[Rfam]
RNA: Bacterial RNase P class A
RNA sequence: AGAGUAGGCGCAGGCAGUUGCGGCUAGUAGUCAAGAGCCUCGUGCUUAGGACUGCAAUCCGAGGAAAGUCCGGGCUUCUCAAAGACCAAACUUGCUGGGUAACGCCCAGUGCGGGUGACCGUGAGGAUAGUGCCACAGAAAGAUACCGCCGGUCAGAAGUUUUGAAUUACGAGUUACGAGUUUUGAGUUACGAACUUAAAACUCAAAACUUAAAACUCAAAACUUCUUCGGUAAGGGUGCAAAGGUGCGGUAAGAGCGCACCAGCAGCAUCGAGAGGUGCUGGCUCGGUAAACCCCGGUUGGAAGCAAGGCUGCGGAACAACGGUUGGUCUUUUACCAGUUCCAUGCAAAGGUGAGGUUGCCUCAUCUCUGCCCGUCCGCUUGAGGCGCUUGGUAACAAGUGACCCAGAUAGAUAACUGCCGUCUUAGAUGCAUGGCAUUUAGGACAACAGAACCCGGCUUAUGUCCUGCUCUCCUC
Numbered sequence: 001a002g003a004g005u006a007g008g009c010g011c012a013g014g015c016a017g018u019u020g021c022g023g024c025u026a027g028u029a030g031u032c033a034a035g036a037g038c039c040u041c042g043u044g045c046u047u048a049g050g051a052c053u054g055c056a057a058u059c060c061g062a063g064g065a066a067a068g069u070c071c072g073g074g075c076u077u078c079u080c081a082a083a084g085a086c087c088a089a090a091c092u093u094g095c096u097g098g099g100u101a102a103c104g105c106c107c108a109g110u111g112c113g114g115g116u117g118a119c120c121g122u123g124a125g126g127a128u129a130g131u132g133c134c135a136c137a138g139a140a141a142g143a144u145a146c147c148g149c150c151g152g153u154c155a156g157a158a159g160u161u162u163u164g165a166a167u168u169a170c171g172a173g174u175u176a177c178g179a180g181u182u183u184u185g186a187g188u189u190a191c192g193a194a195c196u197u198a199a200a201a202c203u204c205a206a207a208a209c210u211u212a213a214a215a216c217u218c219a220a221a222a223c224u225u226c227u228u229c230g231g232u233a234a235g236g237g238u239g240c241a242a243a244g245g246u247g248c249g250g251u252a253a254g255a256g257c258g259c260a261c262c263a264g265c266a267g268c269a270u271c272g273a274g275a276g277g278u279g280c281u282g283g284c285u286c287g288g289u290a291a292a293c294c295c296c297g298g299u300u301g302g303a304a305g306c307a308a309g310g311c312u313g314c315g316g317a318a319c320a321a322c323g324g325u326u327g328g329u330c331u332u333u334u335a336c337c338a339g340u341u342c343c344a345u346g347c348a349a350a351g352g353u354g355a356g357g358u359u360g361c362c363u364c365a366u367c368u369c370u371g372c373c374c375g376u377c378c379g380c381u382u383g384a385g386g387c388g389c390u391u392g393g394u395a396a397c398a399a400g401u402g403a404c405c406c407a408g409a410u411a412g413a414u415a416a417c418u419g420c421c422g423u424c425u426u427a428g429a430u431g432c433a434u435g436g437c438a439u440u441u442a443g444g445a446c447a448a449c450a451g452a453a454c455c456c457g458g459c460u461u462a463u464g465u466c467c468u469g470c471u472c473u474c475c476u477c
Base pairs, nucleotide, nucleotide: 001473002472003471004470005469006468007467008466010465011464012463013421014420015419016418017417018416019415021061022060023059025057027055028054029053030052031051032050066461067460068459070458071457072456073455074454075305076304077303078302084361089300090299091298093297094296095109096108097107098106099105110124111122112121113120114119125295126294130293131292132289133288134287146236147235148232149231150230151229152228155225156224244262245261246260247259248258249257264284265282266281267280268279269278270277271276309378310377312375313372314371315370316369317368352366353365354364355363356362385404387402388401389400390399391398392397